[Rfam]
RNA sequence: GCCGGCGAAGGGAAUGGGGUCUCCCGACAACCGCCGAUCCGGCUGAUGACUCCUGCUGACAG
Numbered sequence: 001g002c003c004g005g006c007g008a009a010g011g012g013a014a015u016g017g018g019g020u021c022u023c024c025c026g027a028c029a030a031c032c033g034c035c036g037a038u039c040c041g042g043c044u045g046a047u048g049a050c051u052c053c054u055g056c057u058g059a060c061a062g
Stems, first nucleotide, its partner, number of pairs: 010025004016053006033043003
Dot-bracket structure: .........[[[[..((((((]]]].......(((.....)))....)))))).........
RNA: Fluoride riboswitch aptamer (crcB RNA motif)
Organism: Sphingomonas sp. EC-HK361